Rfam assigns this 179-nucleotide RNA sequence from Virgibacillus oceani to the family "Lysine riboswitch aptamer". Lineage of the source: Bacteria > Bacillati > Bacillota > Bacilli > Virgibacillus. It scores 128 bits against the family's covariance model. The family's consensus secondary structure is taken from published work.
RNA sequence: AAUGGGGAUAGAGGUGCGAAAACCAUUAGUACACAAUUGGAGGAAAAUGAGGUCCAGUGAUAAUUGUGGAAAGGGGAAUUUGCCGAAGCCUGUAAGAAUCUCAUGUACUUAAGGCUGGGUCUGUAUUGAAUAAAUGCAGGACUGUCAUAUAGGAGACUAUAUGGGGGGCUAUCGUAAAA
Numbered sequence: 001a002a003u004g005g006g007g008a009u010a011g012a013g014g015u016g017c018g019a020a021a022a023c024c025a026u027u028a029g030u031a032c033a034c035a036a037u038u039g040g041a042g043g044a045a046a047a048u049g050a051g052g053u054c055c056a057g058u059g060a061u062a063a064u065u066g067u068g069g070a071a072a073g074g075g076g077a078a079u080u081u082g083c084c085g086a087a088g089c090c091u092g093u094a095a096g097a098a099u100c101u102c103a104u105g106u107a108c109u110u111a112a113g114g115c116u117g118g119g120u121c122u123g124u125a126u127u128g129a130a131u132a133a134a135u136g137c138a139g140g141a142c143u144g145u146c147a148u149a150u151a152g153g154a155g156a157c158u159a160u161a162u163g164g165g166g167g168g169c170u171a172u173c174g175u176a177a178a179a
Base pairs, nucleotide, nucleotide: 007173008172009171010170011169016083017082018081019080020079023076024075032068033067034066035065036064037063038062039061087116088115089114090113091112093111094110095109096108098106117143118142120140121139122138123137124136125135126134127133145164146163147162148161149160150159151158